[Rfam]
RNA sequence: CUCUUAUCUUGAGCGGUGGAGGGACUGGCCCUAUGAACCCGCGGCAACCUUCAGGUGUAUUUGAAAGGUGCCAAUUCCUGCAAAGUAAUCCUUUGACAGAUGAGGG
Numbered sequence: 001c002u003c004u005u006a007u008c009u010u011g012a013g014c015g016g017u018g019g020a021g022g023g024a025c026u027g028g029c030c031c032u033a034u035g036a037a038c039c040c041g042c043g044g045c046a047a048c049c050u051u052c053a054g055g056u057g058u059a060u061u062u063g064a065a066a067g068g069u070g071c072c073a074a075u076u077c078c079u080g081c082a083a084a085g086u087a088a089u090c091c092u093u094u095g096a097c098a099g100a101u102g103a104g105g106g
Stems, first nucleotide, its partner, number of pairs: 001106008013042004021031003025080001027078002043072004048068002050064002053061001076098001081095005
RNA: SAM riboswitch aptamer (S box leader)